The record is a 389-nucleotide sequence from Sphingobacterium sp. SGG-5, which matches "Bacterial RNase P class A" in Rfam. About the family: Ribonuclease P (RNase P) is a ubiquitous endoribonuclease, found in archaea, bacteria and eukarya as well as chloroplasts and mitochondria. Rfam classes the family as a ribozyme. The source organism's lineage runs through Bacteria, Bacteroidota, Sphingobacteriia, Sphingobacteriales and Sphingobacterium. The match comes from Rfam's covariance-model search (250 bits).
RNA sequence: AAGCAAACUGGUUCUAUCGCUGUCCCGUCUCUGGCGGGAGAGAGGAAAGUCCGGGCAACAUAGAGCAACACGCUUCCUAACGGGAAGGGUUCCGAUUUGUCGGAAAACAGAAAGUGCCACAGAAAAUAUACCACUCCGACUUGUCGGAGUAAGGGUGAAAACGUGAGGUAAGAGCUCACGGUCUUGUAUGGUGACAUACAUUACGGUAAACCUCGUGUGUUGAAAGACCAAAUAGAUCGCAGAAUCUGAAGGCUGCUCGUCUUCUUCCGACCCGUCGGAAUCUGCGAAGGGUAGGUUGAUGGAUCCCGCGAGUGAUUGCGGGACUAGAUAAAUGAUAGAAGCCUCGAUGCGUCGGGGUACAGAACCCGGCUUAUAAGGUUUGCUUCUUU
Numbered sequence: 001a002a003g004c005a006a007a008c009u010g011g012u013u014c015u016a017u018c019g020c021u022g023u024c025c026c027g028u029c030u031c032u033g034g035c036g037g038g039a040g041a042g043a044g045g046a047a048a049g050u051c052c053g054g055g056c057a058a059c060a061u062a063g064a065g066c067a068a069c070a071c072g073c074u075u076c077c078u079a080a081c082g083g084g085a086a087g088g089g090u091u092c093c094g095a096u097u098u099g100u101c102g103g104a105a106a107a108c109a110g111a112a113a114g115u116g117c118c119a120c121a122g123a124a125a126a127u128a129u130a131c132c133a134c135u136c137c138g139a140c141u142u143g144u145c146g147g148a149g150u151a152a153g154g155g156u157g158a159a160a161a162c163g164u165g166a167g168g169u170a171a172g173a174g175c176u177c178a179c180g181g182u183c184u185u186g187u188a189u190g191g192u193g194a195c196a197u198a199c200a201u202u203a204c205g206g207u208a209a210a211c212c213u214c215g216u217g218u219g220u221u222g223a224a225a226g227a228c229c230a231a232a233u234a235g236a237u238c239g240c241a242g243a244a245u246c247u248g249a250a251g252g253c254u255g256c257u258c259g260u261c262u263u264c265u266u267c268c269g270a271c272c273c274g275u276c277g278g279a280a281u282c283u284g285c286g287a288a289g290g291g292u293a294g295g296u297u298g299a300u301g302g303a304u305c306c307c308g309c310g311a312g313u314g315a316u317u318g319c320g321g322g323a324c325u326a327g328a329u330a331a332a333u334g335a336u337a338g339a340a341g342c343c344u345c346g347a348u349g350c351g352u353c354g355g356g357g358u359a360c361a362g363a364a365c366c367c368g369g370c371u372u373a374u375a376a377g378g379u380u381u382g383c384u385u386c387u388u389u
Stems, first nucleotide, its partner, number of pairs: 001385009011374001012340007020042002023039006047372003051369005056222004063273001065271001068218005073087005088108001090105006109213002114211002116207003131154002133150007162180006185200006226297004237287005265280004304323008